[Rfam]
RNA sequence: AAUAAUUGCUAGGGGUGCCUUAAUUGGCUGAGAGGUUUUACCGACCCUUGUACCUGAUCUGGAUAAUACCAGCGUAGGAAAGCUUCAUCCACUUUAU
Number, nucleotide and partner (000 for none) at each position: 001a000002a000003u000004a000005a000006u000007u000008g083009c082010u081011a048012g047013g046014g045015g000016u000017g028018c027019c026020u000021u000022a000023a000024u000025u000026g019027g018028c017029u000030g000031a000032g000033a000034g000035g041036u040037u000038u000039u000040a036041c035042c000043g000044a000045c014046c013047c012048u011049u000050g000051u000052a000053c078054c077055u076056g075057a000058u000059c072060u071061g070062g069063a000064u000065a000066a000067u000068a000069c062070c061071a060072g059073c000074g000075u056076a055077g054078g053079a000080a000081a010082g009083c008084u000085u000086c000087a000088u000089c000090c000091a000092c000093u000094u000095u000096a000097u000
Rfam assigns this 97-nucleotide RNA from Terrisporobacter othiniensis to the family "TPP riboswitch aptamer (THI element)". NCBI's taxonomy places the organism under Bacteria, Bacillati, Peptostreptococcales, Peptostreptococcaceae, Terrisporobacter. It scores 67 bits against the family's covariance model. Rfam describes the family as follows. Vitamin B(1) in its active form thiamin pyrophosphate (TPP) is an essential coenzyme that is synthesised by coupling of pyrimidine and thiazole moieties in bacteria. Gene Ontology term of the family: thiamine pyrophosphate binding. The base pairs follow the family's consensus structure, which is taken from published work.